[Rfam]
RNA sequence: ACCUCCGAGGAGCGCUGCGAGGCGCCGGGCUGUCCAGCCCAGGCCCCCAGGCUCGGACCCCGCCGCCACGGUGGGUUGCAGUUCAACGGCGCUCACCCUGC
Numbered sequence: 001a002c003c004u005c006c007g008a009g010g011a012g013c014g015c016u017g018c019g020a021g022g023c024g025c026c027g028g029g030c031u032g033u034c035c036a037g038c039c040c041a042g043g044c045c046c047c048c049a050g051g052c053u054c055g056g057a058c059c060c061c062g063c064c065g066c067c068a069c070g071g072u073g074g075g076u077u078g079c080a081g082u083u084c085a086a087c088g089g090c091g092c093u094c095a096c097c098c099u100g101c
Base pairs, nucleotide, nucleotide: 004057005056006055007054008053021046022045024044025043026042
RNA: SAH (S-adenosyl-L-homocysteine) riboswitch aptamer
Organism: Thauera terpenica